Rfam assigns this 65-nucleotide sequence from Pedobacter heparinus to the family "DUF805 RNA". Rfam's curators put it in the seed alignment. The family is grouped with related families in Rfam's "DUF805 clan".

[Rfam]
RNA sequence: UAAUGGUGGAGCAGCAACCACUUGUAAAAACGGGCGGGCCGAAAAGCCAAAAGAGUAGGAACACA
Numbered sequence: 001u002a003a004u005g006g007u008g009g010a011g012c013a014g015c016a017a018c019c020a021c022u023u024g025u026a027a028a029a030a031c032g033g034g035c036g037g038g039c040c041g042a043a044a045a046g047c048c049a050a051a052a053g054a055g056u057a058g059g060a061a062c063a064c065a
Stems, first nucleotide, its partner, number of pairs: 006021004033048003039059002